The record is a 74-nucleotide RNA sequence from Myotis myotis, which matches "mir-9223 microRNA precursor family" in Rfam. The organism belongs to Myotis, within Eukaryota. Rfam links the family to the GO terms RISC complex and miRNA-mediated post-transcriptional gene silencing.
[Rfam]
RNA sequence: GGUGGUUUUUGGGUGAUGCACCCCGGAAAUCAGGCUCCCUCCUCUCUGGUUCCAGUGCAUCACCGAGAACUGCA
Numbered sequence: 001g002g003u004g005g006u007u008u009u010u011g012g013g014u015g016a017u018g019c020a021c022c023c024c025g026g027a028a029a030u031c032a033g034g035c036u037c038c039c040u041c042c043u044c045u046c047u048g049g050u051u052c053c054a055g056u057g058c059a060u061c062a063c064c065g066a067g068a069a070c071u072g073c074a
Stems, first nucleotide, its partner, number of pairs: 002073002005070006012064006019057003025053003029050006